[Rfam]
RNA sequence: CCCUUAACUAUUAAAAGUUUCGUUUUGGUCCCUUAACUUAUUUUUUGGUUUCAUUUUGGUCACUUAACUCUAAUACAUUCAUCCUGACAUAAAGGACCAAAGUGGUUGACGAGGAAGAGUUAAGGGACCAAAACGAAACCAAAAAGUAAGUUACAGGAUCAAAAUGAAACUUUUAAUAGUUAAAGGA
Number, nucleotide and partner (000 for none) at each position: 001c000002c185003c000004u183005u182006a181007a180008c179009u000010a000011u000012u000013a000014a000015a000016a000017g000018u000019u000020u000021c000022g000023u164024u163025u162026u000027g160028g159029u158030c000031c156032c000033u000034u153035a152036a151037c150038u149039u148040a147041u146042u145043u144044u000045u142046u141047g140048g000049u000050u000051u000052c000053a000054u000055u000056u000057u000058g000059g000060u000061c000062a000063c000064u000065u000066a000067a000068c000069u000070c000071u000072a000073a000074u000075a000076c000077a000078u000079u000080c000081a000082u000083c000084c000085u000086g000087a000088c000089a000090u000091a000092a000093a000094g000095g000096a000097c000098c000099a000100a000101a000102g000103u000104g000105g000106u000107u000108g000109a000110c000111g000112a000113g000114g000115a000116a000117g000118a000119g000120u000121u000122a000123a000124g000125g000126g000127a000128c000129c000130a000131a000132a000133a000134c000135g000136a000137a000138a000139c000140c047141a046142a045143a000144a043145a042146g041147u040148a039149a038150g037151u036152u035153a034154c000155a000156g031157g000158a029159u028160c027161a000162a025163a024164a023165u000166g000167a000168a000169a000170c000171u000172u000173u000174u000175a000176a000177u000178a000179g008180u007181u006182a005183a004184a000185g002186g000187a000
RNA: MIR2655 microRNA precursor family
Organism: Medicago truncatula